Record summary: The family of this 119-nucleotide RNA from Asticcacaulis sp. YBE204 is "Group II catalytic intron D1-D4-2". The base pairs follow the family's consensus structure. Taxonomically the source falls in Asticcacaulis (Bacteria, Pseudomonadati, Alphaproteobacteria, Caulobacterales).
RNA sequence: GGAGGUCGGCCCACCGGCAUCGGCGUCCAGACGCAGGUGUCAAACCACCCCAAGCGGCUGUGGUCAAAAGCCAUGGUCGUGAGCAUUGGGGCUAAAUGUGAGGGAUAAACCGUGCUGGU
Number, nucleotide and partner (000 for none) at each position: 001g015002g014003a000004g012005g011006u000007c000008g000009g000010c000011c005012c004013a000014c002015c001016g041017g040018c039019a038020u037021c036022g000023g034024c033025g032026u031027c000028c000029a000030g000031a026032c025033g024034c023035a000036g021037g020038u019039g018040u017041c016042a000043a000044a000045c000046c118047a000048c091049c090050c089051c088052a087053a086054g080055c079056g000057g077058c076059u075060g000061u073062g072063g071064u070065c000066a000067a000068a000069a000070g064071c063072c062073a061074u000075g059076g058077u057078c000079g055080u054081g000082a000083g000084c000085a000086u053087u052088g051089g050090g049091g048092c000093u000094a000095a000096a000097u000098g115099u114100g113101a000102g111103g110104g000105a000106u000107a000108a000109a000110c103111c102112g000113u100114g099115c098116u000117g000118g046119u000